[Rfam]
RNA sequence: AGCGCACUCCGGGGUCGGUGAAACUCCGAACCGGCGGUUACAGUCCGCGACCCGUCCGCAAGCCAGCGGCCGGUUGACCAGGUGAAAUUCCUGGACCGACGGUUAAAGUCCGGAUGGGAGGCGUGCGCG
Number, nucleotide and partner (000 for none) at each position: 001a000002g000003c127004g126005c125006a124007c123008u000009c121010c120011g000012g000013g000014g000015u000016c028017g027018g026019u000020g000021a000022a000023a000024c000025u000026c018027c017028g016029a000030a109031c108032c098033g097034g048035c047036g046037g045038u000039u000040a000041c000042a000043g096044u095045c037046c036047g035048c034049g000050a000051c000052c073053c072054g000055u000056c000057c000058g000059c000060a000061a000062g000063c000064c000065a000066g000067c000068g000069g000070c000071c000072g053073g052074u000075u000076g000077a000078c094079c093080a092081g091082g090083u000084g000085a000086a000087a000088u000089u000090c082091c081092u080093g079094g078095a044096c043097c033098g032099a000100c112101g111102g110103u000104u000105a000106a000107a000108g031109u030110c102111c101112g100113g000114a000115u000116g000117g000118g000119a000120g010121g009122c000123g007124u006125g005126c004127g003128c000129g000